[Rfam]
RNA sequence: AAAGUCCCUGUCGGGUAAGGUUUAACCAACCACCCGUAUCGAGUGUUGCGCCUGAGGCGGAGCAGUUUCAAGUCGAGGCUGCGAACAAGACAGGUGAAGCGUACACAGAGAAUCAUGUAGGCCACAGGGGAUACCGUGUCCCUGAAGUGCUGGUAUCGCUCCGAUAAUAAAGAAAGCUCUGGUUGACGAGGCUUGUAACGCAGUCGAAGUCCAUGCAAAACAACCGUAUCUGGUGAGGUUGUGGCGAACCAGCGGGGUUCUCAAGCC
Numbered sequence: 001a002a003a004g005u006c007c008c009u010g011u012c013g014g015g016u017a018a019g020g021u022u023u024a025a026c027c028a029a030c031c032a033c034c035c036g037u038a039u040c041g042a043g044u045g046u047u048g049c050g051c052c053u054g055a056g057g058c059g060g061a062g063c064a065g066u067u068u069c070a071a072g073u074c075g076a077g078g079c080u081g082c083g084a085a086c087a088a089g090a091c092a093g094g095u096g097a098a099g100c101g102u103a104c105a106c107a108g109a110g111a112a113u114c115a116u117g118u119a120g121g122c123c124a125c126a127g128g129g130g131a132u133a134c135c136g137u138g139u140c141c142c143u144g145a146a147g148u149g150c151u152g153g154u155a156u157c158g159c160u161c162c163g164a165u166a167a168u169a170a171a172g173a174a175a176g177c178u179c180u181g182g183u184u185g186a187c188g189a190g191g192c193u194u195g196u197a198a199c200g201c202a203g204u205c206g207a208a209g210u211c212c213a214u215g216c217a218a219a220a221c222a223a224c225c226g227u228a229u230c231u232g233g234u235g236a237g238g239u240u241g242u243g244g245c246g247a248a249c250c251a252g253c254g255g256g257g258u259u260c261u262c263a264a265g266c267c
Stems, first nucleotide, its partner, number of pairs: 012036004019031004023236001025234002039109002043106004047101002049096006155261001158258006179252006185211003190205004216246001220242006
RNA: Group II catalytic intron D1-D4-6